[Rfam]
RNA sequence: GAACGCGGCCGGGCCCCUCUGGCGAGUAAGAACUCGUGAUGUCGGACGUAGCAU
Numbered sequence: 001g002a003a004c005g006c007g008g009c010c011g012g013g014c015c016c017c018u019c020u021g022g023c024g025a026g027u028a029a030g031a032a033c034u035c036g037u038g039a040u041g042u043c044g045g046a047c048g049u050a051g052c053a054u
Stems, first nucleotide, its partner, number of pairs: 006048002009045004022037006